[Rfam]
RNA sequence: UGGCCAGUAAGAACUUGAUCACUGUGUAGUCUGAGUUUCUGGGAACCAAGAGAUGGAGUGUGUUCUGAAAAAAAGACAGAUCA
Numbered sequence: 001u002g003g004c005c006a007g008u009a010a011g012a013a014c015u016u017g018a019u020c021a022c023u024g025u026g027u028a029g030u031c032u033g034a035g036u037u038u039c040u041g042g043g044a045a046c047c048a049a050g051a052g053a054u055g056g057a058g059u060g061u062g063u064u065c066u067g068a069a070a071a072a073a074a075g076a077c078a079g080a081u082c083a
Stems, first nucleotide, its partner, number of pairs: 002082002005079001038049001040048003
small Cajal body-specific RNA 18: an 83-nucleotide sequence from Cricetulus griseus. The match comes from Rfam's covariance-model search (51 bits). It is annotated as a small Cajal body RNA. Gene Ontology terms of the family: RNA processing, nucleolus and Cajal body. From the family's description: scaRNAs are a specific class of small nuclear RNAs which localise to the Cajal bodies and guide the modification of RNA polymerase II transcribed spliceosomal RNAs U1, U2, U4, U5 and U12. This C/D box domain U91 (also known as U4-8) was identified by Darzacq and is predicted to guide the 2'O-ribose methylation of U4 snRNA C8.